[Rfam]
RNA: Bacterial small signal recognition particle RNA
Organism: Rickettsiales bacterium Ac37b
Nucleotides: 094
Stems, first nucleotide, its partner, number of pairs: 002090011013076001017074004024066004029061001034059004042051003
Number, partner (000 for none) and nucleotide at each position: 001000a002090a003089g004088g005087g006086u007085c008084a009083a010082g011081g012080a013076u014000a015000g016000g017074c018073a019072g020071g021000u022000a023000a024066u025065u026064c027063a028000g029061u030000a031000a032000g033000u034059c035058g036057g037056u038000c039000a040000g041000g042051u043050c044049u045000g046000a047000a048000a049044a050043g051042a052000a053000g054000c055000a056037g057036c058035c059034g060000u061029a062000a063027u064026g065025a066024g067000c068000u069000u070000u071020c072019u073018u074017g075000g076013g077000u078000u079000g080012u081011u082010c083009u084008u085007g086006a087005c088004c089003u090002u091000a092000u093000u094000a